[Rfam]
RNA: Glutamine-II riboswitch aptamer
RNA sequence: UUACGUUCAUCCAUACAUAACCUAAUAACAGGUUGUAUGGACGCAUCAAUACAUUAUUCAGGGAACGGGGGAUGGUG
Numbered sequence: 001u002u003a004c005g006u007u008c009a010u011c012c013a014u015a016c017a018u019a020a021c022c023u024a025a026u027a028a029c030a031g032g033u034u035g036u037a038u039g040g041a042c043g044c045a046u047c048a049a050u051a052c053a054u055u056a057u058u059c060a061g062g063g064a065a066c067g068g069g070g071g072a073u074g075g076u077g
Stems, first nucleotide, its partner, number of pairs: 004067005010041008052077006058070002